[Rfam]
RNA sequence: ACAAAGGCUCUUUUAAGAGCCACCUAAAAACUCACUUUAAAAGUGU
Numbered sequence: 001a002c003a004a005a006g007g008c009u010c011u012u013u014u015a016a017g018a019g020c021c022a023c024c025u026a027a028a029a030a031c032u033c034a035c036u037u038u039a040a041a042a043g044u045g046u
Base pairs, nucleotide, nucleotide: 006021007020008019009018010017011016
RNA: Histone 3' UTR stem-loop